[Rfam]
RNA: Burkholderia sRNA Bp1_Cand684_SIPHT
Organism: Trinickia soli
RNA sequence: AGAAAAGUGACCGCCGCCCCGCGCAGGGGCAACGCUAGCAGACCGCUAAGAAAGCAAGUCCAACGAGAGAGCGUGAACCACAAAAAUAAAAACCCACGCCCCCGCGAGCCCCCC
Numbered sequence: 001a002g003a004a005a006a007g008u009g010a011c012c013g014c015c016g017c018c019c020c021g022c023g024c025a026g027g028g029g030c031a032a033c034g035c036u037a038g039c040a041g042a043c044c045g046c047u048a049a050g051a052a053a054g055c056a057a058g059u060c061c062a063a064c065g066a067g068a069g070a071g072c073g074u075g076a077a078c079c080a081c082a083a084a085a086a087u088a089a090a091a092a093c094c095c096a097c098g099c100c101c102c103c104g105c106g107a108g109c110c111c112c113c114c
Base pairs, nucleotide, nucleotide: 012075013074014073016030017029018028019027020026059066060065097106098105099104